[Rfam]
RNA sequence: UCGCAUCCGCCAAACGGUCAAGCCGUGACGCGGGAGGUUAACUAAUCCUAGCUUUAACCAGCUAAAGCUCCCUGAAGGGGAGUGAAAGUCAGCG
Numbered sequence: 001u002c003g004c005a006u007c008c009g010c011c012a013a014a015c016g017g018u019c020a021a022g023c024c025g026u027g028a029c030g031c032g033g034g035a036g037g038u039u040a041a042c043u044a045a046u047c048c049u050a051g052c053u054u055u056a057a058c059c060a061g062c063u064a065a066a067g068c069u070c071c072c073u074g075a076a077g078g079g080g081a082g083u084g085a086a087a088g089u090c091a092g093c094g
Base pairs, nucleotide, nucleotide: 002094003093004092006034007033008032009031010030015025016024017023018022036059037058038057039056040055041054061089062088063087067083068082069081070080071079072078073077

Record summary: This 94-nucleotide sequence from Rhodoferax antarcticus belongs to the Rfam family "SucA RNA motif". By type it is a cis-regulatory element. The match comes from Rfam's covariance-model search (74 bits).